[Rfam]
This 81-nucleotide RNA sequence from Physeter macrocephalus belongs to the Rfam family "mir-87 microRNA precursor family".
RNA sequence: CCAACAAACACAUGAAAGAAUGCUCAACAUCAUUAAUCAUUAGAGAAAUGAUGUUGAGCAUUCUUUCAUGUGUUUGUUGGC
Dot-bracket structure: .((((((.(((((((.(((((.((((.(((....................))).)))).))))).))))))).))))))..
The organism belongs to Physeter, within Eukaryota.
It scores 50 bits against the family's covariance model.
The family has 44 seed sequences and 420 matches in Rfam 15.1.
The base pairs follow the family's consensus structure, which was predicted with RNAalifold.